[Rfam]
RNA: Small nucleolar RNA SNORD58
Organism: Synaphobranchus kaupii
RNA sequence: UUGCAAUGAUGACUACUUAGGACACCUUUGGAUUACCCAUGAAAAGACUUUACAUGAUCUGAGCAAC
Number, nucleotide and partner (000 for none) at each position: 001u066002u065003g064004c063005a000006a000007u000008g000009a000010u000011g000012a000013c000014u000015a000016c000017u000018u000019a000020g000021g000022a000023c000024a000025c000026c000027u000028u000029u000030g000031g000032a000033u000034u000035a000036c000037c000038c000039a000040u000041g000042a000043a000044a000045a000046g000047a000048c000049u000050u000051u000052a000053c000054a000055u000056g000057a000058u000059c000060u000061g000062a000063g004064c003065a002066a001067c000